This 71-nucleotide RNA from Rodentolepis nana belongs to the Rfam family "HDV ribozyme from F. prausnitzii". Rfam links the family to the GO term catalytic activity. A search with the family's covariance model found it, with a score of 44 bits. Pairs were carried over by alignment from the consensus structure, which is taken from published work. Lineage of the source: Eukaryota > Opisthokonta > Metazoa > Hymenolepididae > Rodentolepis.
[Rfam]
RNA sequence: GGUGUGCGAUAGACUUUACCUCCUCGUGGUGCACCCUAGGCAACGUAUACUCAUACGGCAAAAAAGUCUAU
Number, nucleotide and partner (000 for none) at each position: 001g037002g036003u000004g034005u033006g032007c031008g000009a000010u000011a000012g000013a000014c000015u000016u000017u000018a030019c029020c028021u000022c000023c000024u000025c000026g000027u000028g020029g019030u018031g007032c006033a005034c004035c000036c002037u001038a000039g000040g000041c000042a000043a000044c057045g056046u055047a054048u053049a000050c000051u000052c000053a048054u047055a046056c045057g044058g000059c000060a000061a000062a000063a000064a000065a000066g000067u000068c000069u000070a000071u000